[Rfam]
RNA sequence: UGGCUGUAAUGGUCAUUCCAUUGGAAAGUUGAGGGUUCUCCCUUCGCCAAGACUGUUUGUCAGGUUUAGGCUUGGCAGUGUCCGCGGUGUCGAGUUCGAACUCUCUGGUGCACGAUAACCCGUCGGAGCGAGCAGUCCUCCAGUAUGGGCAUGCGUAAAGUUGGAGGGUAUUUGUGAGGGUGGAGACACCGCAGCAGGCCUUUCCACCAGAGAGUGGCGUCAACACGGUAGCACCUGCGGGCAUUUGGGUACUGGCGAUGAGAGGUUUGGACUCGGUUUACCAAUAUCUCUUUCUUUUUUUAUUCUAUUUUU
Numbered sequence: 001u002g003g004c005u006g007u008a009a010u011g012g013u014c015a016u017u018c019c020a021u022u023g024g025a026a027a028g029u030u031g032a033g034g035g036u037u038c039u040c041c042c043u044u045c046g047c048c049a050a051g052a053c054u055g056u057u058u059g060u061c062a063g064g065u066u067u068a069g070g071c072u073u074g075g076c077a078g079u080g081u082c083c084g085c086g087g088u089g090u091c092g093a094g095u096u097c098g099a100a101c102u103c104u105c106u107g108g109u110g111c112a113c114g115a116u117a118a119c120c121c122g123u124c125g126g127a128g129c130g131a132g133c134a135g136u137c138c139u140c141c142a143g144u145a146u147g148g149g150c151a152u153g154c155g156u157a158a159a160g161u162u163g164g165a166g167g168g169u170a171u172u173u174g175u176g177a178g179g180g181u182g183g184a185g186a187c188a189c190c191g192c193a194g195c196a197g198g199c200c201u202u203u204c205c206a207c208c209a210g211a212g213a214g215u216g217g218c219g220u221c222a223a224c225a226c227g228g229u230a231g232c233a234c235c236u237g238c239g240g241g242c243a244u245u246u247g248g249g250u251a252c253u254g255g256c257g258a259u260g261a262g263a264g265g266u267u268u269g270g271a272c273u274c275g276g277u278u279u280a281c282c283a284a285u286a287u288c289u290c291u292u293u294c295u296u297u298u299u300u301u302a303u304u305c306u307a308u309u310u311u312u
Base pairs, nucleotide, nucleotide: 001015002014003013004012020309022307023306024305025304026303031297032296033295037265038264039263040262042260044258045257046256047255048254049253052250053249054248059076060075061074062073063072064071065070079243080242081241082240083239084238085237086235087234088233089232090231091227092226094224095223097219098218100215101214102213103212104211105210106209107208108207113153114152119148120147122144123143125141126140127139128138130137131136156160162206163205164204165203166202167201168200172197173196174195175194180189181188182187
RNA: Fungal signal recognition particle RNA